The family of this 129-nucleotide RNA from Nipponia nippon is "Small nucleolar RNA SNORA65". Taxonomically the source falls in Nipponia (Eukaryota, Sarcopterygii, Tetrapoda, Neoaves). The literature on the family includes a 2001 paper in EMBO J by Huttenhofer et al., "RNomics: an experimental approach that identifies 201 candidates for novel, small, non-messenger RNAs in mouse". Rfam links the family to the GO terms nucleolus and RNA processing. Rfam's curators write: U65 belongs to the H/ACA class of snoRNAs which are thought to guide the sites of modification of uridines to pseudouridines.
RNA sequence: CCCGCCACUGUGCCUGUCGUGUCACGCGUUGACUGGUACGGCCCAGAGGUGAGCUGACAGCAAAUGCCAACUUAGGAAACAGAGUUAUUCUUCUUGUGGGUAACUUUGUGCCGAAGUCUGGGGACAGGC
Numbered sequence: 001c002c003c004g005c006c007a008c009u010g011u012g013c014c015u016g017u018c019g020u021g022u023c024a025c026g027c028g029u030u031g032a033c034u035g036g037u038a039c040g041g042c043c044c045a046g047a048g049g050u051g052a053g054c055u056g057a058c059a060g061c062a063a064a065u066g067c068c069a070a071c072u073u074a075g076g077a078a079a080c081a082g083a084g085u086u087a088u089u090c091u092u093c094u095u096g097u098g099g100g101u102a103a104c105u106u107u108g109u110g111c112c113g114a115a116g117u118c119u120g121g122g123g124a125c126a127g128g129c
Stems, first nucleotide, its partner, number of pairs: 005049002008046003018036001021033001022031001065122001067120001069119001070117004075112002080108006088100003
It is annotated as an H/ACA-box small nucleolar RNA. Clan: SNORA65 clan.